[Rfam]
RNA sequence: CAUAUUACACGUAUUUACUUUUUUAGCUUUUUUAUGCACCACCAAAAUUUUGGAGGCGAUUCAGUCACGGCAUAAACAAGUCAAAUACGAAUUCAAGCCUCCCACCCGGGAGGCUUUUUUUUU
Dot-bracket structure: .................(.(.(((.((((.(((.(((....(((......))).(((......)))...))).))).)))).))).).).....(((((((((....))))))))).......
Shown here is a 123-nucleotide sequence from Pseudoalteromonas ulvae, a member of the family "Phenylalanine leader peptide". The base pairs follow the family's consensus structure, which was predicted with CMfinder. The literature on the family includes a 1978 paper in Proc Natl Acad Sci U S A by Zurawski et al., "Nucleotide sequence of the leader region of the phenylalanine operon of Escherichia coli". Lineage of the source: Bacteria > Pseudomonadota > Gammaproteobacteria > Alteromonadales > Pseudoalteromonas. By type it is a cis-regulatory leader.